RNA sequence: UGGUAGAUGCACCCUGAUUCCGAGGCUCUGAGGUUUUUCCUUAGAGCCUUUUUCU
Numbered sequence: 001u002g003g004u005a006g007a008u009g010c011a012c013c014c015u016g017a018u019u020c021c022g023a024g025g026c027u028c029u030g031a032g033g034u035u036u037u038u039c040c041u042u043a044g045a046g047c048c049u050u051u052u053u054c055u
Base pairs, nucleotide, nucleotide: 002013003012004011025047026046027045028044029043030042031041032040033039
RNA: Nitrogen stress-induced RNA 1